[Rfam]
This 85-nucleotide RNA from Oryctolagus cuniculus belongs to the Rfam family "let-7 microRNA precursor family". Rfam's curators put it in the seed alignment. Gene Ontology terms of the family: RISC complex and miRNA-mediated post-transcriptional gene silencing.

RNA sequence: UCGGGGUGAGGUAGUAGGUUGUGUGGUUUCAGGGCAGCGGUGUCGCCCCUCAGCAGAUAACUAUACAGCCUACUGCCUUCCCCGA
Number, nucleotide and partner (000 for none) at each position: 001u085002c084003g083004g082005g081006g080007u000008g079009a078010g077011g076012u075013a074014g073015u072016a071017g070018g069019u068020u067021g066022u065023g064024u063025g062026g061027u060028u000029u000030c000031a000032g048033g047034g046035c045036a000037g000038c000039g000040g000041u000042g000043u000044c000045g035046c034047c033048c032049c056050u055051c000052a000053g000054c000055a050056g049057a000058u000059a000060a027061c026062u025063a024064u023065a022066c021067a020068g019069c018070c017071u016072a015073c014074u013075g012076c011077c010078u009079u008080c006081c005082c004083c003084g002085a001